ASpks TB sRNA: a 75-nucleotide RNA from Actinomadura sp. WAC 06369. The base pairs follow the family's consensus structure, which is taken from published work. Rfam classes the family as an antisense RNA. The organism belongs to Actinomadura, within Bacteria.
Nucleotides: 075
Stems, first nucleotide, its partner, number of pairs: 014026004032070001038065002043060002047056003
Number, partner (000 for none) and nucleotide at each position: 001000c002000u003000u004000c005000a006000c007000c008000g009000a010000g011000c012000c013000g014026a015025g016024c017023c018000a019000c020000a021000g022000c023017g024016g025015c026014u027000c028000c029000u030000c031000g032070g033000g034000g035000u036000c037000c038065c039064g040000g041000u042000c043060c044059u045000u046000g047056c048055c049054g050000u051000a052000g053000g054049u055048g056047g057000c058000c059044a060043g061000g062000a063000g064039c065038g066000c067000c068000u069000g070032c071000g072000c073000c074000u075000c